[Rfam]
Bacterial large signal recognition particle RNA: a 266-nucleotide RNA sequence from Clostridium magnum. It is annotated as a non-coding RNA gene. Rfam describes the family as follows. The signal recognition particle (SRP) is a universally conserved ribonucleoprotein involved in the co-translational targeting of proteins to membranes. A search with the family's covariance model found it, with a score of 195 bits.
RNA sequence: UCGUGCUACAUGGGGAGUUAGCGGUGCCCUGUAACCUGCAAUCCGCUAUAGCAGGAUGGAAUUCCCCCUAUAGGCUUUAGUCUGUUGGGUCAGUCUGAUCAAAGUGGUGUUGAGAAUUGGGUCCCAUGCGGCAGAAGCUUAUGAACUCCGUCAGAUCCGGAAGGAAGCAGCGGUAAGUAAUCACUUCUGAGUGCCGUGGAUCAACCUGAUUUGAGCUAACUAGAUCUGUAACGCCAGUAGAUUAAUUGUCGACAGUGGGUGUACGA
Numbered sequence: 001u002c003g004u005g006c007u008a009c010a011u012g013g014g015g016a017g018u019u020a021g022c023g024g025u026g027c028c029c030u031g032u033a034a035c036c037u038g039c040a041a042u043c044c045g046c047u048a049u050a051g052c053a054g055g056a057u058g059g060a061a062u063u064c065c066c067c068c069u070a071u072a073g074g075c076u077u078u079a080g081u082c083u084g085u086u087g088g089g090u091c092a093g094u095c096u097g098a099u100c101a102a103a104g105u106g107g108u109g110u111u112g113a114g115a116a117u118u119g120g121g122u123c124c125c126a127u128g129c130g131g132c133a134g135a136a137g138c139u140u141a142u143g144a145a146c147u148c149c150g151u152c153a154g155a156u157c158c159g160g161a162a163g164g165a166a167g168c169a170g171c172g173g174u175a176a177g178u179a180a181u182c183a184c185u186u187c188u189g190a191g192u193g194c195c196g197u198g199g200a201u202c203a204a205c206c207u208g209a210u211u212u213g214a215g216c217u218a219a220c221u222a223g224a225u226c227u228g229u230a231a232c233g234c235c236a237g238u239a240g241a242u243u244a245a246u247u248g249u250c251g252a253c254a255g256u257g258g259g260u261g262u263a264c265g266a
Stems, first nucleotide, its partner, number of pairs: 001266006009058003012030004017025003035055005064259003068255002073250003079243010096228002104220002106217003114212009124199005129191001132189005137182001139180004148173004156165003